Shown here is a 104-nucleotide RNA sequence from Arabidopsis lyrata, a member of the family "MIR162_1 microRNA precursor family". Taxonomically the source falls in Arabidopsis (Eukaryota, Viridiplantae, Mesangiospermae, rosids). Gene Ontology terms of the family: miRNA-mediated post-transcriptional gene silencing and RISC complex. The literature on the family includes a 2002 paper in Genes Dev by Reinhart et al., "MicroRNAs in plants". The family is grouped with related families in Rfam's "MIR167 microRNA precursor clan". It is one of the family's seed sequences. The base pairs follow the family's consensus structure, which was predicted with RNAalifold.

RNA sequence: AGUGAAGUCGCUGGAGGCAGCGGUUCAUCGAUCAAUUCCUGUGAAUAUUUUUGUUUUCAAAAGCAUGAAUCGAUCGAUAAACCUCUGCAUCCAGCGCUUACUCU
Dot-bracket structure: ............(((..(((.((((.(((((((..(((............................)))..))))))).)))).)))..)))............